[Rfam]
Shown here is an 84-nucleotide RNA sequence from Salvia splendens, a member of the family "Small nucleolar RNA R44/J54/Z268 family". Lineage of the source: Eukaryota > Streptophytina > lamiids > Salviinae > core Calosphace.
Nucleotides: 084
Stems, first nucleotide, its partner, number of pairs: 002083005
Number, partner (000 for none) and nucleotide at each position: 001000u002083a003082u004081g005080c006079a007000a008000g009000u010000g011000a012000u013000g014000a015000u016000u017000a018000a019000a020000a021000g022000a023000c024000a025000g026000g027000g028000a029000c030000a031000u032000c033000a034000g035000c036000a037000u038000u039000c040000u041000a042000u043000u044000a045000g046000g047000a048000u049000a050000u051000g052000a053000u054000g055000g056000u057000u058000u059000g060000u061000c062000g063000a064000u065000c066000g067000g068000a069000a070000u071000c072000u073000c074000u075000c076000u077000g078000u079006u080005g081004c082003a083002u084000a